[Rfam]
RNA: Small nucleolar RNA SNORD77
RNA sequence: GUACUGUGAUGGUUGCCUAGUUCAUCAGAUGAAAUCAUGAAGAGAUUCACCAUCUAUCUGAUGUCU
Numbered sequence: 001g002u003a004c005u006g007u008g009a010u011g012g013u014u015g016c017c018u019a020g021u022u023c024a025u026c027a028g029a030u031g032a033a034a035u036c037a038u039g040a041a042g043a044g045a046u047u048c049a050c051c052a053u054c055u056a057u058c059u060g061a062u063g064u065c066u
Base pairs, nucleotide, nucleotide: 001066003064004063006038007037008036009035010034013028014027015026043055044054045053046052